Rfam assigns this 221-nucleotide RNA sequence to the family "PAGEV RNA".
[Rfam]
RNA sequence: GCGGGCUUGGAUUUAUGAUGCUGUGGGCCCGCAUCACAGCGCGUCAAGCGAGCGAUCACGGGGAUCUCCAGACGCUCGUCGGUAUAGCCAUUGGCUGCUCAAAGUAGGCCGCUAGGGGAUGCUCGCAUUGCUCCCGGUGCUCCGAAUUUCAUACAGCAGUCAAUGCCGCACGCCGUGGAGGGGUGAUUCGUGUUGGACGAAUCAGAAGGUGCGGGACGCCG
Numbered sequence: 001g002c003g004g005g006c007u008u009g010g011a012u013u014u015a016u017g018a019u020g021c022u023g024u025g026g027g028c029c030c031g032c033a034u035c036a037c038a039g040c041g042c043g044u045c046a047a048g049c050g051a052g053c054g055a056u057c058a059c060g061g062g063g064a065u066c067u068c069c070a071g072a073c074g075c076u077c078g079u080c081g082g083u084a085u086a087g088c089c090a091u092u093g094g095c096u097g098c099u100c101a102a103a104g105u106a107g108g109c110c111g112c113u114a115g116g117g118g119a120u121g122c123u124c125g126c127a128u129u130g131c132u133c134c135c136g137g138u139g140c141u142c143c144g145a146a147u148u149u150c151a152u153a154c155a156g157c158a159g160u161c162a163a164u165g166c167c168g169c170a171c172g173c174c175g176u177g178g179a180g181g182g183g184u185g186a187u188u189c190g191u192g193u194u195g196g197a198c199g200a201a202u203c204a205g206a207a208g209g210u211g212c213g214g215g216a217c218g219c220c221g
Stems, first nucleotide, its partner, number of pairs: 001032007048079006067179004089165010166214006184204006